[Rfam]
Description
This 244-nucleotide sequence from Streptomyces laurentii belongs to the Rfam family "Streptomyces sRNA 4677". Located in the intergenic region between anti-sigma factor SCO4677 gene and a putative regulatory protein gene SCO4676. scr4677 expression requires the SCO4677 activity and scr4677 sRNA itself seem to affect the levels of the SCO4676-associated transcripts. The match comes from Rfam's covariance-model search (136 bits). The family has 12 seed sequences and 563 matches in Rfam 15.1.
RNA sequence: GGUUCCGGUUCCGGGGGCGAUCACCUAGUAAAAAACUGGGGAGCGAAAAGACCCGACCAAACCCACCCUUUCCCUCCGUCAGGGGGCGAUCACUCGCACGGGUGAAAUAAGCCAACAGAAGUGGCGCUGAGGCGGGUUGGUUGUUCUACGCUCGCGCCAGAACGACCCGGACAUACGUCGGCCCUCGCCGGGACUAGCGAUCCCAGUGCGAGGGCCUGACCAACGAGGAAGCGAACCCUUCCCG
Numbered sequence: 001g002g003u004u005c006c007g008g009u010u011c012c013g014g015g016g017g018c019g020a021u022c023a024c025c026u027a028g029u030a031a032a033a034a035a036c037u038g039g040g041g042a043g044c045g046a047a048a049a050g051a052c053c054c055g056a057c058c059a060a061a062c063c064c065a066c067c068c069u070u071u072c073c074c075u076c077c078g079u080c081a082g083g084g085g086g087c088g089a090u091c092a093c094u095c096g097c098a099c100g101g102g103u104g105a106a107a108u109a110a111g112c113c114a115a116c117a118g119a120a121g122u123g124g125c126g127c128u129g130a131g132g133c134g135g136g137u138u139g140g141u142u143g144u145u146c147u148a149c150g151c152u153c154g155c156g157c158c159a160g161a162a163c164g165a166c167c168c169g170g171a172c173a174u175a176c177g178u179c180g181g182c183c184c185u186c187g188c189c190g191g192g193a194c195u196a197g198c199g200a201u202c203c204c205a206g207u208g209c210g211a212g213g214g215c216c217u218g219a220c221c222a223a224c225g226a227g228g229a230a231g232c233g234a235a236c237c238c239u240u241c242c243c244g
Base pairs, nucleotide, nucleotide: 007224009222016077017076019074090105091104092103093102094101095100121155122154123153124152180216181215182214183213184212186210187209188208190204191203192202193201227242228241229240230239231238